This 103-nucleotide RNA sequence from Effusibacillus lacus belongs to the Rfam family "Purine riboswitch aptamer".

RNA sequence: UAAACUGAUGUCGGAAACGCUCGUAUAACGUCGGGGAUAGGGCCCGACAGUCUCUACCAGGUCACCGUAAAUGACCUGACUACGAGGCGGUUGUUCGGCAAGU
Numbered sequence: 001u002a003a004a005c006u007g008a009u010g011u012c013g014g015a016a017a018c019g020c021u022c023g024u025a026u027a028a029c030g031u032c033g034g035g036g037a038u039a040g041g042g043c044c045c046g047a048c049a050g051u052c053u054c055u056a057c058c059a060g061g062u063c064a065c066c067g068u069a070a071a072u073g074a075c076c077u078g079a080c081u082a083c084g085a086g087g088c089g090g091u092u093g094u095u096c097g098g099c100a101a102g103u
Stems, first nucleotide, its partner, number of pairs: 018089003021085005030048006058078007